Shown here is a 108-nucleotide sequence, a member of the family "TPP riboswitch aptamer (THI element)".
RNA sequence: GGCAAUUCCUGGGGGAGCCCUGUUUCGGGCUGAGACUCCGCGUCAUCGCGGUAACCCUUUGAACCUGCUCCGGGUAAUGCCGGCGAAGGGAAGGCCAUCGCACGACUC
Number, nucleotide and partner (000 for none) at each position: 001g000002g000003c000004a000005a000006u000007u000008c094009c093010u092011g058012g057013g056014g055015g000016a052017g030018c029019c028020c027021u000022g000023u000024u000025u000026c000027g020028g019029g018030c017031u000032g000033a000034g000035a000036c000037u051038c050039c000040g000041c000042g000043u000044c000045a000046u000047c000048g000049c000050g038051g037052u016053a000054a000055c014056c013057c012058u011059u000060u000061g000062a000063a000064c089065c088066u087067g000068c000069u000070c083071c082072g081073g080074g000075u000076a000077a000078u000079g000080c073081c072082g071083g070084c000085g000086a000087a066088g065089g064090g000091a000092a010093g009094g008095c000096c000097a000098u000099c000100g000101c000102a000103c000104g000105a000106c000107u000108c000
The match comes from Rfam's covariance-model search (68 bits). A reference for the family is Rodionov et al. (2002), "Comparative genomics of thiamin biosynthesis in procaryotes. New genes and regulatory mechanisms", J Biol Chem.